[Rfam]
The record is a 127-nucleotide RNA sequence from Xenopus tropicalis, which matches "Small nucleolar RNA SNORA65" in Rfam.
RNA sequence: CCCGCCACUGUGGCAGUUUAUUUCCUGACUGCCCACAGUCCAGUGGUGAGCUAAUAACAACCGCCAUCUUAGGAAACAGGUGCAUUCUGGGUGUGGGUGAACCUGUGCCGAAAGAUUGGAAACAAGC
Numbered sequence: 001c002c003c004g005c006c007a008c009u010g011u012g013g014c015a016g017u018u019u020a021u022u023u024c025c026u027g028a029c030u031g032c033c034c035a036c037a038g039u040c041c042a043g044u045g046g047u048g049a050g051c052u053a054a055u056a057a058c059a060a061c062c063g064c065c066a067u068c069u070u071a072g073g074a075a076a077c078a079g080g081u082g083c084a085u086u087c088u089g090g091g092u093g094u095g096g097g098u099g100a101a102c103c104u105g106u107g108c109c110g111a112a113a114g115a116u117u118g119g120a121a122a123c124a125a126g127c
Base pairs, nucleotide, nucleotide: 005046006045007044008043009042010041019031020030021028022027064119065118066117067115068114069113070112072109073108077105078104079103080102081101085097086096087095
The base pairs follow the family's consensus structure, which was predicted with RNAalifold. On this family, see Huttenhofer et al., EMBO J 2001: "RNomics: an experimental approach that identifies 201 candidates for novel, small, non-messenger RNAs in mouse". Its family is annotated with RNA processing and nucleolus in the Gene Ontology. The family is grouped with related families in Rfam's "SNORA65 clan". The family's RNA type in Rfam is H/ACA-box small nucleolar RNA. The organism belongs to Silurana, within Eukaryota. A search with the family's covariance model found it, with a score of 79 bits. U65 belongs to the H/ACA class of snoRNAs which are thought to guide the sites of modification of uridines to pseudouridines.